The family of this 130-nucleotide RNA sequence from a Flavobacteriaceae bacterium is "6S-Flavo RNA". NCBI's taxonomy places the organism under Bacteria, Bacteroidota, Flavobacteriia, Flavobacteriales, Flavobacteriaceae.

[Rfam]
RNA sequence: ACUCAACGUUAAUUCUUUAUAAAGGGUGAGUUUAAGCUGUAAAAGCGAGCUGCUAGUACUGAAUUUUAUUCAGUAUCUCGAGCAGAUACUUGAUCAGUUUGUUAACCCUAAACUUGUUUUUAAGGAGUUU
Numbered sequence: 001a002c003u004c005a006a007c008g009u010u011a012a013u014u015c016u017u018u019a020u021a022a023a024g025g026g027u028g029a030g031u032u033u034a035a036g037c038u039g040u041a042a043a044a045g046c047g048a049g050c051u052g053c054u055a056g057u058a059c060u061g062a063a064u065u066u067u068a069u070u071c072a073g074u075a076u077c078u079c080g081a082g083c084a085g086a087u088a089c090u091u092g093a094u095c096a097g098u099u100u101g102u103u104a105a106c107c108c109u110a111a112a113c114u115u116g117u118u119u120u121u122a123a124g125g126a127g128u129u130u
Stems, first nucleotide, its partner, number of pairs: 023109005034100005043091003050085004

The match comes from Rfam's covariance-model search (98 bits). The base pairs follow the family's consensus structure, which is taken from published work.